[Rfam]
The record is a 35-nucleotide sequence from Flavobacterium supellecticarium, which matches "DUF805b RNA" in Rfam.
Nucleotides: 035
Stems, first nucleotide, its partner, number of pairs: 002021004010034003
Number, partner (000 for none) and nucleotide at each position: 001000c002021a003020g004019g005018a006000g007000u008000a009000a010034c011033c012032u013000g014000a015000a016000a017000a018005u019004c020003c021002u022000u023000a024000a025000a026000a027000g028000a029000g030000u031000a032012a033011g034010g035000g
Rfam classes the family as a cis-regulatory element.